[Rfam]
RNA sequence: UCCUUCUCCUAUACCCAUUGCAUAUCGGAGUUGGGAAGUCUCAAUACACCUCCUAUGUGCAUGGAUUACAGGAGAG
Numbered sequence: 001u002c003c004u005u006c007u008c009c010u011a012u013a014c015c016c017a018u019u020g021c022a023u024a025u026c027g028g029a030g031u032u033g034g035g036a037a038g039u040c041u042c043a044a045u046a047c048a049c050c051u052c053c054u055a056u057g058u059g060c061a062u063g064g065a066u067u068a069c070a071g072g073a074g075a076g
Stems, first nucleotide, its partner, number of pairs: 003074005015064004020060006027053004032048002
Source information
mir-660 microRNA precursor family: a 76-nucleotide RNA from Dipodomys ordii.